[Rfam]
RNA sequence: AGGGGAAUGCAGGAUCCUGGGCUGUGUCCCCUGGCAUCCUGGGCUCCAGGGCCUGCGCUGCUGGAAUGGUGCUUGCCGGCCGUGCGGCGCCCU
Numbered sequence: 001a002g003g004g005g006a007a008u009g010c011a012g013g014a015u016c017c018u019g020g021g022c023u024g025u026g027u028c029c030c031c032u033g034g035c036a037u038c039c040u041g042g043g044c045u046c047c048a049g050g051g052c053c054u055g056c057g058c059u060g061c062u063g064g065a066a067u068g069g070u071g072c073u074u075g076c077c078g079g080c081c082g083u084g085c086g087g088c089g090c091c092c093u
Stems, first nucleotide, its partner, number of pairs: 001093004009085002012081002016079002019076001021074001025071004030064002032060004037055001041053001043052003
This 93-nucleotide RNA sequence from Canis lupus belongs to the Rfam family "mir-8799 microRNA precursor family".
The family is grouped with related families in Rfam's "mir-8791 microRNA precursor clan".
The family has 7 seed sequences and 20,638 matches in Rfam 15.1.
It scores 46 bits against the family's covariance model.